S4-Bacteroidia ribosomal protein leader: a 31-nucleotide RNA sequence. A reference for the family is Eckert and Weinberg (2020), "Discovery of 20 novel ribosomal leader candidates in bacteria and archaea", BMC Microbiol. The base pairs follow the family's consensus structure, which is taken from published work. Rfam classes the family as a cis-regulatory leader.
[Rfam]
RNA sequence: GAUUGCAAUUCCUUUCUGUAAAUCGCGGCUG
Numbered sequence: 001g002a003u004u005g006c007a008a009u010u011c012c013u014u015u016c017u018g019u020a021a022a023u024c025g026c027g028g029c030u031g
Stems, first nucleotide, its partner, number of pairs: 001024003004020003
Dot-bracket structure: ((((((...........))).))).......